[Rfam]
RNA sequence: UGGUCUCAGGGCGAUGGAGUUCGCCUAAACCGCAUAAUGCUGAUGACUCCUGUUUCUUA
Numbered sequence: 001u002g003g004u005c006u007c008a009g010g011g012c013g014a015u016g017g018a019g020u021u022c023g024c025c026u027a028a029a030c031c032g033c034a035u036a037a038u039g040c041u042g043a044u045g046a047c048u049c050c051u052g053u054u055u056c057u058u059a
Stems, first nucleotide, its partner, number of pairs: 010025004016050006032040002
A member of the RNA family "Fluoride riboswitch aptamer (crcB RNA motif)" from Eubacterium callanderi, 59 nucleotides long. The source organism's lineage runs through Bacteria, Bacillati, Clostridia, Eubacteriales and Eubacterium. Pairs were carried over by alignment from the consensus structure, which is taken from published work.